MIR530 microRNA precursor family: a 173-nucleotide RNA from Gossypium armourianum. The organism belongs to Gossypium, within Eukaryota. The match comes from Rfam's covariance-model search (101 bits). For this family Rfam cites "Stress-responsive microRNAs in Populus" (Lu et al., Plant J, 2008).

[Rfam]
RNA sequence: GCUAAGAUGUAGCCUUUAUCUGCAUUUGCACCUGCACCUUCUUGUUUUUAAUUAUCUGCUUCUGCUUCAGAAACCAAAUGUGUUUGUUUGUGAUGCUGAUGAAAAUAGAAUAGGACCAAAACGGAAAAUAAUAAUAAGGUGCAGGUGCAGGCGCAGCUGAAUGCCAUUUUGGC
Numbered sequence: 001g002c003u004a005a006g007a008u009g010u011a012g013c014c015u016u017u018a019u020c021u022g023c024a025u026u027u028g029c030a031c032c033u034g035c036a037c038c039u040u041c042u043u044g045u046u047u048u049u050a051a052u053u054a055u056c057u058g059c060u061u062c063u064g065c066u067u068c069a070g071a072a073a074c075c076a077a078a079u080g081u082g083u084u085u086g087u088u089u090g091u092g093a094u095g096c097u098g099a100u101g102a103a104a105a106u107a108g109a110a111u112a113g114g115a116c117c118a119a120a121a122c123g124g125a126a127a128a129u130a131a132u133a134a135u136a137a138g139g140u141g142c143a144g145g146u147g148c149a150g151g152c153g154c155a156g157c158u159g160a161a162u163g164c165c166a167u168u169u170u171g172g173c
Stems, first nucleotide, its partner, number of pairs: 001173009012164002015161004020156004025151015054079002057076002060073001061071004